[Rfam]
RNA sequence: AUGCCCAGAGAGAUUGGCAGGGUCUGAUCUGCAGCCUCCAUGGCAGCUGUUGAUCAGCCAUUGCCUCUCUUUCUCUCCU
Numbered sequence: 001a002u003g004c005c006c007a008g009a010g011a012g013a014u015u016g017g018c019a020g021g022g023u024c025u026g027a028u029c030u031g032c033a034g035c036c037u038c039c040a041u042g043g044c045a046g047c048u049g050u051u052g053a054u055c056a057g058c059c060a061u062u063g064c065c066u067c068u069c070u071u072u073c074u075c076u077c078c079u
Stems, first nucleotide, its partner, number of pairs: 008071006016065005022059001024057006032049004
RNA: mir-574 microRNA precursor family